[Rfam]
This 134-nucleotide sequence from Geotrypetes seraphini belongs to the Rfam family "Small nucleolar RNA SNORA9". Rfam classes the family as an H/ACA-box small nucleolar RNA. The family's consensus secondary structure was predicted with PFOLD. It scores 102 bits against the family's covariance model. ACA9 is a member of the H/ACA class of snoRNA that guide the sites of modification of uridines to pseudouridines. The family has 36 seed sequences and 1,202 matches in Rfam 15.1.
RNA sequence: AAGCAGGUCUUCCAGCAUGGUAGGGUUUGCUAUAAUCCUGUCCAUUCCUGCAGAGCCUGCAAGAUAAAAACUUGAAAUAGUUUGAGGCCACCUCCUGUUCUUCCAGGAAGGGGCUUUAGAAGUUUCAUACAGUU
Numbered sequence: 001a002a003g004c005a006g007g008u009c010u011u012c013c014a015g016c017a018u019g020g021u022a023g024g025g026u027u028u029g030c031u032a033u034a035a036u037c038c039u040g041u042c043c044a045u046u047c048c049u050g051c052a053g054a055g056c057c058u059g060c061a062a063g064a065u066a067a068a069a070a071c072u073u074g075a076a077a078u079a080g081u082u083u084g085a086g087g088c089c090a091c092c093u094c095c096u097g098u099u100c101u102u103c104c105a106g107g108a109a110g111g112g113g114c115u116u117u118a119g120a121a122g123u124u125u126c127a128u129a130c131a132g133u134u
Base pairs, nucleotide, nucleotide: 003060004059005058006057007056008055018044019043020042023038024037025036026035027034073127074126075125076124077123088113089112091110093108095106096105097104